[Rfam]
This 114-nucleotide RNA sequence from Carassius auratus belongs to the Rfam family "Potassium channel RNA editing signal". Taxonomically the source falls in Carassius (Eukaryota, Bilateria, Cyprinoidei, Cyprininae). Rfam classes the family as a cis-regulatory element. Its family is annotated with adenosine to inosine editing in the Gene Ontology. On this family, see Bhalla et al., Nat Struct Mol Biol 2004: "Control of human potassium channel inactivation by editing of a small mRNA hairpin". It scores 97 bits against the family's covariance model.
RNA sequence: UUAGGCUACGGAGACAUGUACCCUCAGACGUGGUCAGGGAUGGUUGUCGGCGCGCUCUGUGCCCUCGCCGGAGUGCUGACCAUAGCCAUGCCUGUCCCCGUCAUCGUCAAUAAC
Dot-bracket structure: .(.(...((((.(((..(.((...............((.(........(((.........)))..........).))................)).)..))).))))...).).